[Rfam]
RNA: Actino-pnp RNA
Organism: Propionicimonas paludicola
RNA sequence: UUUGGUCCUCGGUAGUGACUUUCGGGAAACCUCGAGUUCCCCGCGAGCCUCGAUCGAAGACCGGG
Numbered sequence: 001u002u003u004g005g006u007c008c009u010c011g012g013u014a015g016u017g018a019c020u021u022u023c024g025g026g027a028a029a030c031c032u033c034g035a036g037u038u039c040c041c042c043g044c045g046a047g048c049c050u051c052g053a054u055c056g057a058a059g060a061c062c063g064g065g
Stems, first nucleotide, its partner, number of pairs: 001065007009057005017049001019047003023043004028038002